[Rfam]
Nucleotides: 087
Base pairs, nucleotide, nucleotide: 001025002024005022006021007020008019009018010017011016038045039044047087048086049085056080058078059077060076061075062074063073
Number, partner (000 for none) and nucleotide at each position: 001025u002024a003000a004000c005022c006021u007020a008019u009018g010017u011016a012000g013000u014000g015000a016011u017010a018009c019008a020007u021006a022005g023000c024002u025001g026000a027000a028000g029000u030000c031000u032000a033000a034000g035000a036000a037000g038045u039044c040000a041000g042000c043000a044039g045038a046000g047087g048086u049085c050000a051000u052000a053000g054000u055000a056080c057000u058078c059077u060076c061075g062074c063073u064000a065000a066000u067000c068000g069000c070000g071000a072000a073063a074062g075061c076060g077059a078058g079000u080056g081000g082000a083000a084000g085049g086048a087047c

The record is an 87-nucleotide sequence from Clostridium sulfidigenes, which matches "Group II catalytic intron D1-D4-1" in Rfam.
The source organism's lineage runs through Bacteria, Bacillati, Eubacteriales, Clostridiaceae and Clostridium.
Group II introns are found in rRNA, tRNA and mRNA of organelles in fungi, plants and protists, and also in mRNA in bacteria.